The family of this 86-nucleotide sequence from Aneurinibacillus soli is "c-di-GMP-I riboswitch aptamer".
RNA sequence: CCUCGAUAAUGGCAAACUCAUUGAAAAGUGAGGACGCAAAACCACGGGUCUAACGUUUAACAAACUAUGAUGGCCGGGUUACCGAA
Numbered sequence: 001c002c003u004c005g006a007u008a009a010u011g012g013c014a015a016a017c018u019c020a021u022u023g024a025a026a027a028g029u030g031a032g033g034a035c036g037c038a039a040a041a042c043c044a045c046g047g048g049u050c051u052a053a054c055g056u057u058u059a060a061c062a063a064a065c066u067a068u069g070a071u072g073g074c075c076g077g078g079u080u081a082c083c084g085a086a
Stems, first nucleotide, its partner, number of pairs: 012037002017032006040080004045076003048071003055065004
Taxonomically the source falls in Aneurinibacillus (Bacteria, Bacillati, Bacilli, Paenibacillaceae).